[Rfam]
This 97-nucleotide sequence from Segniliparus rotundus belongs to the Rfam family "Bacterial small signal recognition particle RNA". The base pairs follow the family's consensus structure, which is taken from published work. Lineage of the source: Bacteria > Actinomycetota > Segniliparaceae > Segniliparus > Segniliparus rotundus.
RNA sequence: UUCAGGACCCCGUGCGGCGACCAUCCUGUGAACCCCCCCAGGGCCGGAAGGCAGCAAGGGUCAACGGGCUCUGGCGGGUGCGCGGGGUCCCCUGCUC
Numbered sequence: 001u002u003c004a005g006g007a008c009c010c011c012g013u014g015c016g017g018c019g020a021c022c023a024u025c026c027u028g029u030g031a032a033c034c035c036c037c038c039c040a041g042g043g044c045c046g047g048a049a050g051g052c053a054g055c056a057a058g059g060g061u062c063a064a065c066g067g068g069c070u071c072u073g074g075c076g077g078g079u080g081c082g083c084g085g086g087g088u089c090c091c092c093u094g095c096u097c
Base pairs, nucleotide, nucleotide: 004093005092006091009086010085011084012083013082014081015078018076019075021074022073023072025068026067027066028065029064035060036059037058043052044051045050
The signal recognition particle (SRP) is a universally conserved ribonucleoprotein involved in the co-translational targeting of proteins to membranes.